[Rfam]
RNA sequence: UAUGCAAGUCUGAAGCCAUAGCAGAAGUGCUCAUGGGCUGGCCUGUCAGAUUCCAAUGAAUCUGUGAAUUGUGCU
Numbered sequence: 001u002a003u004g005c006a007a008g009u010c011u012g013a014a015g016c017c018a019u020a021g022c023a024g025a026a027g028u029g030c031u032c033a034u035g036g037g038c039u040g041g042c043c044u045g046u047c048a049g050a051u052u053c054c055a056a057u058g059a060a061u062c063u064g065u066g067a068a069u070u071g072u073g074c075u
Base pairs, nucleotide, nucleotide: 012043015042016041017040020075021074022073023072025070026069027039047064048063049062050061051060052059053058
RNA: Mammalian CPEB3 ribozyme